Rfam assigns this 104-nucleotide sequence from Oryza sativa to the family "Small nucleolar RNA R44/J54/Z268 family". Its family is annotated with nucleolus and RNA processing in the Gene Ontology.

RNA sequence: UUAGCAUAUGAUGAGAAGCAAGACAAGAACAUCUGCAGUGCAUCUGAAUCAAAUCAAGAUGCAGCAACAGGAUGACUCAUGUCUAGGGGAAUCUCUGAUGCUAU
Numbered sequence: 001u002u003a004g005c006a007u008a009u010g011a012u013g014a015g016a017a018g019c020a021a022g023a024c025a026a027g028a029a030c031a032u033c034u035g036c037a038g039u040g041c042a043u044c045u046g047a048a049u050c051a052a053a054u055c056a057a058g059a060u061g062c063a064g065c066a067a068c069a070g071g072a073u074g075a076c077u078c079a080u081g082u083c084u085a086g087g088g089g090a091a092u093c094u095c096u097g098a099u100g101c102u103a104u
Stems, first nucleotide, its partner, number of pairs: 002103005
Dot-bracket structure: .(((((............................................................................................))))).
The sequence is in the family's curated seed alignment. Clan: SNORD74 clan.